[Rfam]
RNA sequence: UAGAGUAAGUGGAGAAGUGGUCUCUUCACUUUUGUUUUGAAUAGUGAGAUUCAACUCCUCCAACUUAGUUUU
Numbered sequence: 001u002a003g004a005g006u007a008a009g010u011g012g013a014g015a016a017g018u019g020g021u022c023u024c025u026u027c028a029c030u031u032u033u034g035u036u037u038u039g040a041a042u043a044g045u046g047a048g049a050u051u052c053a054a055c056u057c058c059u060c061c062a063a064c065u066u067a068g069u070u071u072u
Stems, first nucleotide, its partner, number of pairs: 007066003010062005017056001018054001023049002026047005
Shown here is a 72-nucleotide RNA sequence from Psylliodes chrysocephalus, a member of the family "mir-1175 microRNA precursor family". NCBI's taxonomy places the organism under Eukaryota, Arthropoda, Mandibulata, Neoptera, Psylliodes. The family has 11 seed sequences and 181 matches in Rfam 15.1. The base pairs follow the family's consensus structure, which was predicted with RNAalifold. It scores 78 bits against the family's covariance model.